[Rfam]
Description: The record is a 92-nucleotide sequence from Orthohepacivirus hominis, which matches "Hepatitis C virus stem-loop SL8670" in Rfam. By type it is a cis-regulatory element.
Nucleotides: 092
Base pairs, nucleotide, nucleotide: 008085009084010083014079017076018075020073021072026071029067030066031063032062033061034060035059039052040051041050042049043048
Number, partner (000 for none) and nucleotide at each position: 001000a002000a003000a004000g005000c006000c007000a008085g009084g010083g011000g012000a013000c014079u015000g016000a017076g018075g019000a020073g021072g022000a023000c024000g025000a026071g027000c028000g029067g030066a031063a032062c033061c034060u035059g036000a037000g038000a039052g040051c041050c042049u043048u044000c045000a046000c047000g048043g049042a050041g051040g052039c053000c054000a055000u056000g057000a058000c059035c060034a061033g062032g063031u064000a065000c066030u067029c068000u069000g070000c071026c072021c073020c074000u075018c076017c077000u078000g079014g080000u081000g082000a083010u084009c085008c086000c087000c088000c089000c090000a091000g092000a